[Rfam]
RNA: EGFOA RNA
RNA sequence: AGCCUUCCAGAUGUGCGAAAGCGACCGUCCCAGUCCGGGAAACCGGAGGAUAAUGUUUUGAACAGGUGAAAAUCCUGUACGUUGUAAAGCUGGACCUGGAAACGUUAGAAAAACAGC
Numbered sequence: 001a002g003c004c005u006u007c008c009a010g011a012u013g014u015g016c017g018a019a020a021g022c023g024a025c026c027g028u029c030c031c032a033g034u035c036c037g038g039g040a041a042a043c044c045g046g047a048g049g050a051u052a053a054u055g056u057u058u059u060g061a062a063c064a065g066g067u068g069a070a071a072a073u074c075c076u077g078u079a080c081g082u083u084g085u086a087a088a089g090c091u092g093g094a095c096c097u098g099g100a101a102a103c104g105u106u107a108g109a110a111a112a113a114c115a116g117c
Stems, first nucleotide, its partner, number of pairs: 006100005027095002030093004034047005054115006062078004079105005